RNA sequence: ACCCGAAUGUGGACAUUUUCUAAUCAACUCUUUGAACCGCUCCCACGCAUCAUGAAACUCCUCAUUUGGCUUUUGGGCAAAAGGUAAAAUCUGAGUUCUCAUGUC
Numbered sequence: 001a002c003c004c005g006a007a008u009g010u011g012g013a014c015a016u017u018u019u020c021u022a023a024u025c026a027a028c029u030c031u032u033u034g035a036a037c038c039g040c041u042c043c044c045a046c047g048c049a050u051c052a053u054g055a056a057a058c059u060c061c062u063c064a065u066u067u068g069g070c071u072u073u074u075g076g077g078c079a080a081a082a083g084g085u086a087a088a089a090u091c092u093g094a095g096u097u098c099u100c101a102u103g104u105c
Stems, first nucleotide, its partner, number of pairs: 003103001005100002055072002058069001
RNA: Plant small nucleolar RNA R71
Organism: Malus domestica